[Rfam]
RNA sequence: AAAAGCCUGCAGGGGAGCCGUUUGGCUGAGAGUGAACAGAUGUCUGUUCUGACCCUUCGAACCUGUUAGUUAAUACUAGCGCAGGAAUGGUGGCUUUAUUGAUGG
Numbered sequence: 001a002a003a004a005g006c007c008u009g010c011a012g013g014g015g016a017g018c019c020g021u022u023u024g025g026c027u028g029a030g031a032g033u034g035a036a037c038a039g040a041u042g043u044c045u046g047u048u049c050u051g052a053c054c055c056u057u058c059g060a061a062c063c064u065g066u067u068a069g070u071u072a073a074u075a076c077u078a079g080c081g082c083a084g085g086a087a088u089g090g091u092g093g094c095u096u097u098a099u100u101g102a103u104g105g
Stems, first nucleotide, its partner, number of pairs: 006093002010089001011056004016050001017026003034049006062085004066079004
Notes:
TPP riboswitch aptamer (THI element): a 105-nucleotide RNA sequence from Lentibacillus amyloliquefaciens. Lineage of the source: Bacteria > Bacillati > Bacilli > Caryophanales > Lentibacillus.